[Rfam]
RNA sequence: GAUAACUGGUGGACAUGAAGACUGAAACAACUCCGAGUGUGUGCUUGUUUGGCAUGAGCUUCUUCUUCUUUCGUUAAUGAGACUAGAGUUUAGUAACAGCACUAUAUUU
Numbered sequence: 001g002a003u004a005a006c007u008g009g010u011g012g013a014c015a016u017g018a019a020g021a022c023u024g025a026a027a028c029a030a031c032u033c034c035g036a037g038u039g040u041g042u043g044c045u046u047g048u049u050u051g052g053c054a055u056g057a058g059c060u061u062c063u064u065c066u067u068c069u070u071u072c073g074u075u076a077a078u079g080a081g082a083c084u085a086g087a088g089u090u091u092a093g094u095a096a097c098a099g100c101a102c103u104a105u106a107u108u109u
Base pairs, nucleotide, nucleotide: 043102046101047100048099050098051097057090058089059088060087061086064082065081066080067079

Record summary:
Rfam assigns this 109-nucleotide sequence from Papaver somniferum to the family "Small nucleolar RNA snoR97". By type it is an H/ACA-box small nucleolar RNA.